[Rfam]
Nucleotides: 085
Stems, first nucleotide, its partner, number of pairs: 004037011016025001052074007
Number, partner (000 for none) and nucleotide at each position: 001000a002000c003000c004037u005036g006035u007034u008033g009032c010031g011030g012029g013028c014027g015000g016025u017000a018000g019000c020000g021000a022000g023000u024000g025016g026000g027014u028013g029012c030011c031010c032009g033008c034007a035006a036005u037004a038000c039000a040000a041000g042000a043000c044000a045000g046000a047000a048000c049000a050000c051000c052074g053073u054072g055071c056070c057069u058068c059000g060000g061000g062000a063000a064000c065000a066000u067000a068058g069057g070056g071055g072054c073053a074052c075000u076000u077000c078000a079000g080000g081000g082000c083000g084000u085000u